[Rfam]
RNA: sul1 RNA
Organism: Sphingobium phenoxybenzoativorans
RNA sequence: GACGGACCGGGCCUGCCCGGUGGCUUUUCCCGGCGCCUAACCCUGGGUCACGU
Number, nucleotide and partner (000 for none) at each position: 001g000002a000003c000004g000005g000006a021007c020008c019009g018010g017011g016012c000013c000014u000015g000016c011017c010018c009019g008020g007021u006022g000023g000024c000025u000026u000027u000028u000029c047030c046031c045032g044033g043034c000035g000036c000037c000038u000039a000040a000041c000042c000043c033044u032045g031046g030047g029048u000049c000050a000051c000052g000053u000